[Rfam]
Shown here is a 74-nucleotide sequence from Dialister invisus, a member of the family "tRNA". Transfer RNA (tRNA) molecules are approximately 80 nucleotides in length. It scores 63 bits against the family's covariance model. The source organism's lineage runs through Bacteria, Bacillati, Bacillota, Veillonellales and Dialister invisus.
RNA sequence: GCGUCCAUAGCUCAGCUGGAUAGAGCAGCGGUUUCCUAAACCGUGUGUCGGGGGUUCAAAUCCCUUUGGGCGCA
Numbered sequence: 001g002c003g004u005c006c007a008u009a010g011c012u013c014a015g016c017u018g019g020a021u022a023g024a025g026c027a028g029c030g031g032u033u034u035c036c037u038a039a040a041c042c043g044u045g046u047g048u049c050g051g052g053g054g055u056u057c058a059a060a061u062c063c064c065u066u067u068g069g070g071c072g073c074a
Base pairs, nucleotide, nucleotide: 001073002072003071004070005069006068007067010026011025012024013023028044029043030042031041032040050066051065052064053063054062